[Rfam]
RNA sequence: GAAGAACUGAAGUCGGUUGGUGGAUAGAUUCAGGAUUUCUAGAAAUUUCUAGCACCAUUCGAAAUCAGUGCUUU
Dot-bracket structure: (((((.((((..(((..(((((..((((...................)))).)))))..)))..))))).))))